[Rfam]
RNA: Arthropod 7SK RNA
RNA sequence: GGAAGUGUGUGCUAGUGAUGGCACAGCUGAACAUUGAUCGCUAACGUAGAAAUAUGGCAGAUCUGCUCAGUGGGUGUUGUCACGUGGUCGCUUCAAGUAGCUUGUGUUUGGCUCCCGAUUGCGCGUGCAAGUUCGUGGUGUUUUGCUUUAAGCAUCAUCUCGGAUCUGCACGCCUGCACGGUUGAGUCCUUCACGUCGCUCCUCGAACUACCGCGAUUUCCAAAUUGGGGGGCAAUCGAAUAGGUCAGACGAGGUUAUAAUUUGUCGCUUCCAUAUACAGGCACUGCAGAUAAGCAGUAUGCCAUGUUUUUUUU
Number, nucleotide and partner (000 for none) at each position: 001g272002g271003a270004a269005g268006u267007g266008u000009g000010u000011g000012c000013u000014a000015g083016u082017g081018a080019u079020g000021g000022c000023a000024c000025a000026g000027c070028u069029g068030a000031a000032c065033a064034u000035u000036g063037a062038u061039c060040g058041c057042u056043a055044a000045c000046g000047u000048a000049g000050a000051a000052a000053u000054a000055u043056g042057g041058c040059a000060g039061a038062u037063c036064u033065g032066c000067u000068c029069a028070g027071u000072g000073g000074g000075u000076g000077u000078u000079g019080u018081c017082a016083c015084g000085u000086g000087g000088u000089c000090g000091c000092u000093u000094c000095a000096a000097g000098u000099a000100g000101c000102u000103u000104g000105u000106g000107u000108u000109u000110g000111g000112c000113u000114c000115c000116c000117g000118a000119u000120u000121g000122c000123g000124c000125g000126u000127g000128c000129a000130a000131g000132u000133u000134c000135g000136u000137g000138g000139u000140g000141u000142u000143u000144u000145g000146c000147u000148u000149u000150a000151a000152g000153c000154a000155u000156c000157a000158u000159c000160u000161c000162g000163g000164a000165u000166c000167u000168g000169c000170a000171c000172g000173c000174c000175u000176g000177c000178a000179c000180g000181g000182u000183u000184g000185a000186g000187u000188c000189c000190u000191u000192c000193a000194c000195g000196u000197c000198g000199c000200u000201c000202c000203u000204c000205g000206a000207a000208c000209u000210a000211c000212c000213g000214c000215g000216a000217u000218u000219u000220c000221c000222a000223a000224a000225u000226u000227g000228g000229g000230g000231g000232g000233c000234a000235a000236u000237c000238g000239a000240a000241u000242a000243g000244g000245u000246c000247a000248g000249a000250c000251g000252a000253g000254g000255u000256u000257a000258u000259a000260a000261u000262u000263u000264g000265u000266c007267g006268c005269u004270u003271c002272c001273a000274u000275a000276u000277a000278c000279a000280g303281g302282c301283a298284c297285u296286g295287c294288a000289g000290a000291u000292a000293a000294g287295c286296a285297g284298u283299a000300u000301g282302c281303c280304a000305u000306g000307u000308u000309u000310u000311u000312u000313u000314u000